[Rfam]
RNA sequence: UCAGAUUAGUCGGGGUGCUUGAUAGCUGAGAUCAUACCCGUGAACCUGAUACAGUUAAUACUGACGUAGGAAACUAAUUUCUUUGCUGU
Numbered sequence: 001u002c003a004g005a006u007u008a009g010u011c012g013g014g015g016u017g018c019u020u021g022a023u024a025g026c027u028g029a030g031a032u033c034a035u036a037c038c039c040g041u042g043a044a045c046c047u048g049a050u051a052c053a054g055u056u057a058a059u060a061c062u063g064a065c066g067u068a069g070g071a072a073a074c075u076a077a078u079u080u081c082u083u084u085g086c087u088g089u
Stems, first nucleotide, its partner, number of pairs: 006077005011040004016034001017026003045070004052063003
Source information:
The record is an 89-nucleotide sequence from Avibacterium volantium, which matches "TPP riboswitch aptamer (THI element)" in Rfam. The match comes from Rfam's covariance-model search (67 bits). Pairs were carried over by alignment from the consensus structure, which is taken from published work.